[Rfam]
RNA sequence: CCGCAGCCCGUGCGGCCCUUCGGGGAGAGACGGGACGGGGAUUAGUCGUGAGUGCCCCGUUCCAGCAAAACCGCGACAGCU
Numbered sequence: 001c002c003g004c005a006g007c008c009c010g011u012g013c014g015g016c017c018c019u020u021c022g023g024g025g026a027g028a029g030a031c032g033g034g035a036c037g038g039g040g041a042u043u044a045g046u047c048g049u050g051a052g053u054g055c056c057c058c059g060u061u062c063c064a065g066c067a068a069a070a071c072c073g074c075g076a077c078a079g080c081u
Stems, first nucleotide, its partner, number of pairs: 001015004007034005016025003036059005045077005
About this RNA
This 81-nucleotide RNA sequence from Halopseudomonas pachastrellae belongs to the Rfam family "Proteo-phage-1 RNA". Lineage of the source: Bacteria > Pseudomonadati > Pseudomonadota > Pseudomonadaceae > Halopseudomonas. By type it is a small RNA.